[Rfam]
Nucleotides: 346
Base pairs, nucleotide, nucleotide: 004346005345006344009323010322011321012320013319014318016039017038018037019036020035021034022033023032044341045340046339048338049337050336051335052334053235054234055233056232057231058075059074060073061072062071063070081230082229083228084227085226086107087106088105089104090103091102108128109126110125111124112123113122114121129225130224133170134169135168139164140163141162142161146158147157148156174223175222176219177218178217190207191206192205193204194203195202196201239255240254241253259287260286261285262284263283288309289308290307291306292305293304294303295302296301
Number, partner (000 for none) and nucleotide at each position: 001000g002000u003000u004346a005345u006344c007000a008000a009323c010322u011321g012320a013319u014318c015000g016039c017038a018037g019036a020035g021034u022033a023032u024000u025000u026000a027000u028000u029000u030000a031000a032023a033022u034021a035020u036019u037018u038017u039016g040000a041000g042000g043000a044341a045340a046339g047000u048338c049337c050336a051335u052334g053235c054234u055233a056232g057231c058075a059074c060073u061072u062071a063070c064000u065000g066000a067000g068000a069000u070063g071062u072061a073060a074059g075058u076000a077000a078000u079000g080000u081230u082229u083228g084227u085226g086107g087106a088105a089104u090103a091102g092000g093000a094000a095000a096000a097000a098000a099000u100000a101000a102091c103090u104089a105088u106087u107086c108128a109126a110125a111124c112123a113122a114121g115000a116000g117000c118000a119000a120000a121114c122113u123112u124111g125110u126109u127000a128108u129225g130224g131000c132000a133170a134169a135168u136000u137000u138000a139164a140163a141162u142161c143000u144000a145000a146158g147157g148156u149000u150000u151000u152000u153000u154000a155000a156148a157147u158146u159000a160000u161142g162141a163140u164139u165000u166000a167000a168135a169134u170133u171000g172000u173000g174223g175222u176219g177218c178217c179000a180000c181000a182000g183000a184000g185000a186000c187000g188000a189000g190207c191206u192205u193204a194203a195202a196201a197000g198000a199000a200000a201196u202195u203194u204193u205192a206191a207190g208000g209000u210000g211000a212000a213000a214000c215000g216000a217178g218177g219176u220000a221000a222175a223174c224130c225129c226085c227084a228083c229082a230081a231057g232056c233055u234054a235053g236000a237000a238000a239255c240254c241253u242000a243000a244000a245000u246000u247000a248000u249000g250000g251000u252000a253241a254240g255239g256000g257000a258000a259287c260286c261285a262284a263283a264000a265000u266000a267000g268000g269000g270000a271000a272000a273000u274000c275000a276000a277000c278000c279000g280000a281000u282000u283263u284262u285261u286260g287259g288309a289308a290307u291306u292305a293304a294303u295302g296301a297000u298000a299000a300000u301296u302295c303294a304293u305292u306291a307290g308289u309288u310000a311000g312000a313000u314000a315000a316000a317000u318014g319013g320012u321011c322010a323009g324000a325000u326000a327000a328000a329000c330000a331000a332000a333000a334052u335051a336050u337049g338048g339046c340045u341044u342000a343000c344006g345005a346004u
This 346-nucleotide RNA from Hepatoplasma crinochetorum belongs to the Rfam family "Bacterial RNase P class B".
Rfam links the family to the GO terms tRNA processing, ribonuclease P activity and dimeric ribonuclease P complex.
Rfam's curators write: Ribonuclease P (RNase P) is a ubiquitous endoribonuclease, found in archaea, bacteria and eukarya as well as chloroplasts and mitochondria. Its best characterised activity is the generation of mature 5'-ends of tRNAs by cleaving the 5'-leader elements of precursor-tRNAs. Cellular RNase Ps are ribonucleoproteins. RNA from bacterial RNase Ps retains its catalytic activity in the absence of the protein subunit, i.e. it is a ribozyme.
A search with the family's covariance model found it, with a score of 214 bits.
By type it is a ribozyme.
NCBI's taxonomy places the organism under Bacteria, Mollicutes, Hepatoplasmataceae (SeqCode), Hepatoplasma (SeqCode), Hepatoplasma crinochetorum (SeqCode).